RNA sequence: UGCCAUAAACCCGUAGAUCCGAUCUUGUGGUGAAUUUGGUUUCACAAGCUCGCUUCUAUGGGUCUGUGUCAA
Numbered sequence: 001u002g003c004c005a006u007a008a009a010c011c012c013g014u015a016g017a018u019c020c021g022a023u024c025u026u027g028u029g030g031u032g033a034a035u036u037u038g039g040u041u042u043c044a045c046a047a048g049c050u051c052g053c054u055u056c057u058a059u060g061g062g063u064c065u066g067u068g069u070c071a072a
Stems, first nucleotide, its partner, number of pairs: 002070001004068004010062003015057003020052003024048006
Dot-bracket structure: .(.((((..(((..(((..(((.((((((.............)))))).)))..)))..)))..)))).)..
About this RNA
The family of this 72-nucleotide sequence from Polypterus senegalus is "mir-10 microRNA precursor family". On this family, see Ambros, Cell 2001: "microRNAs: tiny regulators with great potential". Its family is annotated with RISC complex and miRNA-mediated post-transcriptional gene silencing in the Gene Ontology. The family's consensus secondary structure was predicted with PFOLD.